[Rfam]
RNA sequence: CCAAUUCCAACACAAGGUGUUUGGAGCACAUGCACAGCAAGGCGAGGGAGUCUCUGCGCUUGCUGUGCCCGUAGGUACUGGUGAAAUUCGUUACCAGUAGAAGGGCAUUAAUAAUGUGGCCUGUAAGGACGAAAAGUCAGGCGCAUAUUGAGGAACCCAACA
Numbered sequence: 001c002c003a004a005u006u007c008c009a010a011c012a013c014a015a016g017g018u019g020u021u022u023g024g025a026g027c028a029c030a031u032g033c034a035c036a037g038c039a040a041g042g043c044g045a046g047g048g049a050g051u052c053u054c055u056g057c058g059c060u061u062g063c064u065g066u067g068c069c070c071g072u073a074g075g076u077a078c079u080g081g082u083g084a085a086a087u088u089c090g091u092u093a094c095c096a097g098u099a100g101a102a103g104g105g106c107a108u109u110a111a112u113a114a115u116g117u118g119g120c121c122u123g124u125a126a127g128g129a130c131g132a133a134a135a136g137u138c139a140g141g142c143g144c145a146u147a148u149u150g151a152g153g154a155a156c157c158c159a160a161c162a
Stems, first nucleotide, its partner, number of pairs: 006025005032068010076099009119142005
Rfam assigns this 162-nucleotide RNA sequence from Veronia pacifica to the family "DABA-DC-AT RNA". By type it is a cis-regulatory element. Lineage of the source: Bacteria > Pseudomonadota > Gammaproteobacteria > Vibrionaceae > Veronia. A search with the family's covariance model found it, with a score of 59 bits.